A member of the RNA family "c-di-AMP riboswitch aptamer (ydaO/yuaA leader)" from Bacillus yapensis, 143 nucleotides long. Lineage of the source: Bacteria > Bacillota > Bacilli > Caryophanales > Bacillus.

RNA sequence: UUUAAUUUUCGGCCUAAUCCCGAAUAAUUCGGGAGCGGAGGAACCAAUUUUUUGGGGUUAAUUCUACUUGAUGUAGAAGGGAUGAGAGACUCUUUCGCCAUCCUACCCGUCAGCUAACUUCGUCGGCUAAAGCGAAGGAGGUC
Numbered sequence: 001u002u003u004a005a006u007u008u009u010c011g012g013c014c015u016a017a018u019c020c021c022g023a024a025u026a027a028u029u030c031g032g033g034a035g036c037g038g039a040g041g042a043a044c045c046a047a048u049u050u051u052u053u054g055g056g057g058u059u060a061a062u063u064c065u066a067c068u069u070g071a072u073g074u075a076g077a078a079g080g081g082a083u084g085a086g087a088g089a090c091u092c093u094u095u096c097g098c099c100a101u102c103c104u105a106c107c108c109g110u111c112a113g114c115u116a117a118c119u120u121c122g123u124c125g126g127c128u129a130a131a132g133c134g135a136a137g138g139a140g141g142u143c
Stems, first nucleotide, its partner, number of pairs: 011128004018034005035123006045054002055108003063077004080103004